Rfam assigns this 380-nucleotide sequence from Tetzosporium hominis to the family "Bacterial RNase P class B". NCBI's taxonomy places the organism under Bacteria, Bacillati, Bacilli, Caryophanaceae, Tetzosporium. A search with the family's covariance model found it, with a score of 314 bits. Ribonuclease P (RNase P) is a ubiquitous endoribonuclease, found in archaea, bacteria and eukarya as well as chloroplasts and mitochondria. Its best characterised activity is the generation of mature 5'-ends of tRNAs by cleaving the 5'-leader elements of precursor-tRNAs. Cellular RNase Ps are ribonucleoproteins. RNA from bacterial RNase Ps retains its catalytic activity in the absence of the protein subunit, i.e. it is a ribozyme. Isolated eukaryotic and archaeal RNase P RNA has not been shown to retain its catalytic function, but is still essential for the catalytic activity of the holoenzyme. Although the archaeal and eukaryotic holoenzyme s have a much greater protein content than the bacterial ones, the RNA cores from all the three lineages are homologous -- helices corresponding to P1, P2, P3, P4, and P10/11 are common to all cellular RNase P RNAs. Yet, there is considerable sequence variation, particularly among the eukaryotic RNAs.
RNA sequence: CUAUUCAGGCAAUCGCUGCACACUUUAGAUGUGUAGAGGAAAGUCCAUGCUCACACAGCUCUGAGAUGACUGUAGUGUUCGUGCCUCGUGAAGUCAUAAACGAGGGCAGCUGCCAGGCUGACGGCAGAGAAAUCACCUAAGUCUUCGGAUAGGGUGUAGUACUCUUGAAAGUGCCACAGUGACGAAGUCUUACUCGGAAACGGUAAGAGUGGAACGCGGUAAACCCCACGAGUGAGAAACCCAAAUUAUGGUAGGGGCAUUUCCAUGAAGGAACUGAACGGAUUGGAAGACGGAAAUUUCGUAGAUAGAUGAUUGCCGCCCAGUAUGUACGAGGGGUUUCCCCGCUUGAGUACAUGGGAGACAAAACAUGGCUUACCGAA
Numbered sequence: 001c002u003a004u005u006c007a008g009g010c011a012a013u014c015g016c017u018g019c020a021c022a023c024u025u026u027a028g029a030u031g032u033g034u035a036g037a038g039g040a041a042a043g044u045c046c047a048u049g050c051u052c053a054c055a056c057a058g059c060u061c062u063g064a065g066a067u068g069a070c071u072g073u074a075g076u077g078u079u080c081g082u083g084c085c086u087c088g089u090g091a092a093g094u095c096a097u098a099a100a101c102g103a104g105g106g107c108a109g110c111u112g113c114c115a116g117g118c119u120g121a122c123g124g125c126a127g128a129g130a131a132a133u134c135a136c137c138u139a140a141g142u143c144u145u146c147g148g149a150u151a152g153g154g155u156g157u158a159g160u161a162c163u164c165u166u167g168a169a170a171g172u173g174c175c176a177c178a179g180u181g182a183c184g185a186a187g188u189c190u191u192a193c194u195c196g197g198a199a200a201c202g203g204u205a206a207g208a209g210u211g212g213a214a215c216g217c218g219g220u221a222a223a224c225c226c227c228a229c230g231a232g233u234g235a236g237a238a239a240c241c242c243a244a245a246u247u248a249u250g251g252u253a254g255g256g257g258c259a260u261u262u263c264c265a266u267g268a269a270g271g272a273a274c275u276g277a278a279c280g281g282a283u284u285g286g287a288a289g290a291c292g293g294a295a296a297u298u299u300c301g302u303a304g305a306u307a308g309a310u311g312a313u314u315g316c317c318g319c320c321c322a323g324u325a326u327g328u329a330c331g332a333g334g335g336g337u338u339u340c341c342c343c344g345c346u347u348g349a350g351u352a353c354a355u356g357g358g359a360g361a362c363a364a365a366a367c368a369u370g371g372c373u374u375a376c377c378g379a380a
Stems, first nucleotide, its partner, number of pairs: 004380003008317007016036006041374003045371005050236005055073004060069002079231005084105006106122001107120005123226002126165004134156004141150003171224002173220003188208006195202002240256003260289006290302005319358004325351002